[Rfam]
RNA: U4 spliceosomal RNA
Organism: Stentor coeruleus
RNA sequence: AGCCUUGUGCUAGGGGCAAUAUCGCAGUAAGUGAAGCUUAGCUGAUGCGCGAUGAUUGCUAGUUGAAAACUAAUCCAAAUCGUGGUUGUUUACCCAAAUGACUCAAUUUCUGGCAGGUCGAAAGACC
Dot-bracket structure: ....................(((((.(((.....(((...)))..))))))))............................(.((((((((....)))))))))...........((((....))))
Numbered sequence: 001a002g003c004c005u006u007g008u009g010c011u012a013g014g015g016g017c018a019a020u021a022u023c024g025c026a027g028u029a030a031g032u033g034a035a036g037c038u039u040a041g042c043u044g045a046u047g048c049g050c051g052a053u054g055a056u057u058g059c060u061a062g063u064u065g066a067a068a069a070c071u072a073a074u075c076c077a078a079a080u081c082g083u084g085g086u087u088g089u090u091u092a093c094c095c096a097a098a099u100g101a102c103u104c105a106a107u108u109u110c111u112g113g114c115a116g117g118u119c120g121a122a123a124g125a126c127c
Stems, first nucleotide, its partner, number of pairs: 021053005027048003035043003082104001084103008116127004